[Rfam]
RNA sequence: CUUCCUUAGAUCCACCUUUGUGGAUGUUAAUUUUGAACUGAGUUCUACUUGUAAACUCUGUGUUUCUUGUGGUUCCAGUCAAAGAAGCAUCCGGCAACUUUUUGGAUGUACAGCCAAAGGUGCUUGAGUCAUUAAAGAAAAGAACAAAAUGAAAGGAUGGUAACAUCAAAGGUAUUGAGAACUGGUAUAAAAUGAGAGAAAAAAUGCAAUUAUCACAAUUAU
Numbered sequence: 001c002u003u004c005c006u007u008a009g010a011u012c013c014a015c016c017u018u019u020g021u022g023g024a025u026g027u028u029a030a031u032u033u034u035g036a037a038c039u040g041a042g043u044u045c046u047a048c049u050u051g052u053a054a055a056c057u058c059u060g061u062g063u064u065u066c067u068u069g070u071g072g073u074u075c076c077a078g079u080c081a082a083a084g085a086a087g088c089a090u091c092c093g094g095c096a097a098c099u100u101u102u103u104g105g106a107u108g109u110a111c112a113g114c115c116a117a118a119g120g121u122g123c124u125u126g127a128g129u130c131a132u133u134a135a136a137g138a139a140a141a142g143a144a145c146a147a148a149a150u151g152a153a154a155g156g157a158u159g160g161u162a163a164c165a166u167c168a169a170a171g172g173u174a175u176u177g178a179g180a181a182c183u184g185g186u187a188u189a190a191a192a193u194g195a196g197a198g199a200a201a202a203a204a205u206g207c208a209a210u211u212a213u214c215a216c217a218a219u220u221a222u
Stems, first nucleotide, its partner, number of pairs: 002134001005128005013122008021093006031085004037079004042075001045072004051066001053065004094109003098105002150217002154213001157210001160207003169188001171183003
Rfam assigns this 222-nucleotide RNA from Echinops telfairi to the family "Small nucleolar RNA SNORA53". Pairs were carried over by alignment from the consensus structure, which was predicted with RNAalifold. From the family's description: The snoRNA ACA53 belongs to the H/ACA family of pseudouridylation guide snoRNAs.